[Rfam]
RNA: msiK RNA
Organism: Streptomyces sp. Ru73
RNA sequence: CACAUUCCUUCCUUUACUCGGAUCGUCCGGCACGUUCCUGCCGGUGAAGGGACAUAUC
Numbered sequence: 001c002a003c004a005u006u007c008c009u010u011c012c013u014u015u016a017c018u019c020g021g022a023u024c025g026u027c028c029g030g031c032a033c034g035u036u037c038c039u040g041c042c043g044g045u046g047a048a049g050g051g052a053c054a055u056a057u058c
Stems, first nucleotide, its partner, number of pairs: 010051007027044006
Dot-bracket structure: .........(((((((..........((((((......))))))))))))).......